[Rfam]
RNA sequence: GGGGCAACUGUUUGUAAGUCGCUCUGGGUAAGAGCGUCUGCUAAAUGACAUAAA
Numbered sequence: 001g002g003g004g005c006a007a008c009u010g011u012u013u014g015u016a017a018g019u020c021g022c023u024c025u026g027g028g029u030a031a032g033a034g035c036g037u038c039u040g041c042u043a044a045a046u047g048a049c050a051u052a053a054a
Stems, first nucleotide, its partner, number of pairs: 013043001014041003020036006
UnaL2 LINE 3' element: a 54-nucleotide RNA from Salmo trutta. The family's consensus secondary structure is taken from published work. It scores 67 bits against the family's covariance model. The literature on the family includes a 2004 paper in RNA by Baba et al., "Solution structure of an RNA stem-loop derived from the 3' conserved region of eel LINE UnaL2". By type it is a cis-regulatory element.